[Rfam]
Notes: This 113-nucleotide RNA from Corchorus capsularis belongs to the Rfam family "MIR390 microRNA precursor family". The family's consensus secondary structure was predicted with WAR.
RNA sequence: UAGAAGAAUCUGUUAAGCUCAGGAGGGAUAGCGCCAUGGAUGAUCUUUUUGAUAGUAAUUACUUGAUCGAUCCUCAUUAGCGCUAUCCAUCCUGAGUUUCAUCGGUUCUUCUU
Numbered sequence: 001u002a003g004a005a006g007a008a009u010c011u012g013u014u015a016a017g018c019u020c021a022g023g024a025g026g027g028a029u030a031g032c033g034c035c036a037u038g039g040a041u042g043a044u045c046u047u048u049u050u051g052a053u054a055g056u057a058a059u060u061a062c063u064u065g066a067u068c069g070a071u072c073c074u075c076a077u078u079a080g081c082g083c084u085a086u087c088c089a090u091c092c093u094g095a096g097u098u099u100c101a102u103c104g105g106u107u108c109u110u111c112u113u
Base pairs, nucleotide, nucleotide: 010104016098017097018096019095020094021093022092023091024090026088027087028086029085030084031083032082033081034080
Rfam links the family to the GO terms RISC complex and miRNA-mediated post-transcriptional gene silencing.